[Rfam]
Shown here is a 46-nucleotide RNA from Oryzias sinensis, a member of the family "Histone 3' UTR stem-loop".
NCBI's taxonomy places the organism under Eukaryota, Chordata, Actinopteri, Euteleosteomorpha, Oryzias.
Pairs were carried over by alignment from the consensus structure, which is taken from published work.
A search with the family's covariance model found it, with a score of 40 bits.
RNA sequence: CCAACGGCUCUUUUCAGAGCCACACACUUGAUCUGAAGAGUCUCAU
Dot-bracket structure: .....((((((....)))))).........................